[Rfam]
RNA: RNA anti-toxin A
RNA sequence: UAAUGUUGGUAAGAAAAAGGAAGCCCCGCGUGAACAGGACUUCCCGUGUAGAGCCGCUUAAGACGGUGACAAAUUUAUACAGUUUAAAUA
Number, nucleotide and partner (000 for none) at each position: 001u000002a000003a000004u000005g000006u000007u000008g000009g000010u000011a000012a000013g000014a000015a000016a000017a000018a000019g000020g000021a000022a000023g000024c000025c038026c037027c000028g035029c000030g000031u000032g000033a000034a000035c028036a000037g026038g025039a000040c000041u000042u000043c000044c000045c000046g000047u000048g000049u000050a000051g000052a000053g067054c066055c065056g064057c000058u062059u000060a000061a000062g058063a000064c056065g055066g054067u053068g000069a000070c000071a000072a000073a000074u000075u000076u000077a000078u000079a000080c000081a000082g000083u000084u000085u000086a000087a000088a000089u000090a000